[Rfam]
RNA sequence: UGAAGCAGUAUGCCGAAUUUUCGUGAAGAAAAACGGGGGAACCAUUCCGGGUGAAUGAAUCUUGCUUGAGAGGAUUCUAGGGAACCUUCAACCGAACCCACAGCUAACUUCGUAGGCAUCCGAAGGGAGAACAU
Numbered sequence: 001u002g003a004a005g006c007a008g009u010a011u012g013c014c015g016a017a018u019u020u021u022c023g024u025g026a027a028g029a030a031a032a033a034c035g036g037g038g039g040a041a042c043c044a045u046u047c048c049g050g051g052u053g054a055a056u057g058a059a060u061c062u063u064g065c066u067u068g069a070g071a072g073g074a075u076u077c078u079a080g081g082g083a084a085c086c087u088u089c090a091a092c093c094g095a096a097c098c099c100a101c102a103g104c105u106a107a108c109u110u111c112g113u114a115g116g117c118a119u120c121c122g123a124a125g126g127g128a129g130a131a132c133a134u
Base pairs, nucleotide, nucleotide: 011118012117013116014115018032019031020030021029022028033113034112035111036110037109038108049099050098051097057077058076059075060074061073062072080093081092